[Rfam]
RNA sequence: AUAAGUUCUCAGGGCGGGGUGAAAGUCCCCACCGGCGGUAAGGGCCGAAAGGCCUAAGCCCGCGAGCGCCUUCUCCUUGAUAGGGAUUCCCUCGGGGACCCCUCGGAGGGAAGGGUCAGCAGAUUCGGUGCAACUCCGAAGCCGACGGUUAAAGUCCGGAUGAAAGAGAACGGUC
Numbered sequence: 001a002u003a004a005g006u007u008c009u010c011a012g013g014g015c016g017g018g019g020u021g022a023a024a025g026u027c028c029c030c031a032c033c034g035g036c037g038g039u040a041a042g043g044g045c046c047g048a049a050a051g052g053c054c055u056a057a058g059c060c061c062g063c064g065a066g067c068g069c070c071u072u073c074u075c076c077u078u079g080a081u082a083g084g085g086a087u088u089c090c091c092u093c094g095g096g097g098a099c100c101c102c103u104c105g106g107a108g109g110g111a112a113g114g115g116u117c118a119g120c121a122g123a124u125u126c127g128g129u130g131c132a133a134c135u136c137c138g139a140a141g142c143c144g145a146c147g148g149u150u151a152a153a154g155u156c157c158g159g160a161u162g163a164a165a166g167a168g169a170a171c172g173g174u175c
Base pairs, nucleotide, nucleotide: 005171006170007169008168009167010166017029018028019027031155032154033144034143035063036062037061038060058142059141066120067119124140125139126138127137128136146158147157148156
Dot-bracket structure: ....((((((......(((.......))).[[((((((...................[[))))..((...................................................))...(((((.......)))))]])).(((.....]]))).......))))))....